[Rfam]
Glycine riboswitch aptamer: a 90-nucleotide RNA sequence from Lentzea tibetensis. The source organism's lineage runs through Bacteria, Bacillati, Actinomycetota, Pseudonocardiaceae and Lentzea. On this family, see Babina et al., MBio 2017: "In Vivo Behavior of the Tandem Glycine Riboswitch in Bacillus subtilis". The match comes from Rfam's covariance-model search (59 bits). Pairs were carried over by alignment from the consensus structure.

RNA sequence: ACAACCCGAGUGGGAGAGACCCCGCCUGUCGUGCGGGGCGCCGAAGGGGCAAUCCCGCACACUCUCAGGCAGCAAGACCUCUCGGGUGAG
Numbered sequence: 001a002c003a004a005c006c007c008g009a010g011u012g013g014g015a016g017a018g019a020c021c022c023c024g025c026c027u028g029u030c031g032u033g034c035g036g037g038g039c040g041c042c043g044a045a046g047g048g049g050c051a052a053u054c055c056c057g058c059a060c061a062c063u064c065u066c067a068g069g070c071a072g073c074a075a076g077a078c079c080u081c082u083c084g085g086g087u088g089a090g
Base pairs, nucleotide, nucleotide: 006085007084008083009082010081012079013078020038021037022036023035040070041069042068043066044065047064048063049062